[Rfam]
RNA sequence: GCUGCCGUAGGCUAGGAGGAGAGAGGUGUUACCUUAUCAGCUGUUUCCUCUCCCUUCCUUUCUCUCCUGCAGACGC
Numbered sequence: 001g002c003u004g005c006c007g008u009a010g011g012c013u014a015g016g017a018g019g020a021g022a023g024a025g026g027u028g029u030u031a032c033c034u035u036a037u038c039a040g041c042u043g044u045u046u047c048c049u050c051u052c053c054c055u056u057c058c059u060u061u062c063u064c065u066c067c068u069g070c071a072g073a074c075g076c
Stems, first nucleotide, its partner, number of pairs: 001076002005072001007070004011064001014059004018054002021052006028045001030043002033040002
Dot-bracket structure: ((..(.(((((..((((((.((((((.(.((.((....)).)).).)))))))).))))....)..)))).)..))

A member of the RNA family "mir-1759 microRNA precursor family" from Geococcyx californianus, 76 nucleotides long.
It scores 60 bits against the family's covariance model.
Its family is annotated with RISC complex and miRNA-mediated post-transcriptional gene silencing in the Gene Ontology.